[Rfam]
Nucleotides: 071
Base pairs, nucleotide, nucleotide: 004066006064007063009061010060011059012058013057014056015055016054017053018052020050021049022048024047025046026045027044028043029042030041031040032039
Number, partner (000 for none) and nucleotide at each position: 001000a002000u003000u004066c005000g006064u007063u008000g009061g010060a011059u012058g013057a014056g015055u016054g017053u018052g019000a020050g021049g022048c023000g024047u025046u026045g027044g028043a029042u030041u031040g032039a033000u034000u035000u036000c037000a038000c039032u040031c041030a042029a043028u044027c045026c046025g047024a048022g049021c050020c051000c052018c053017a054016c055015a056014u057013u058012c059011a060010u061009c062000a063007g064006a065000g066004g067000c068000u069000c070000a071000u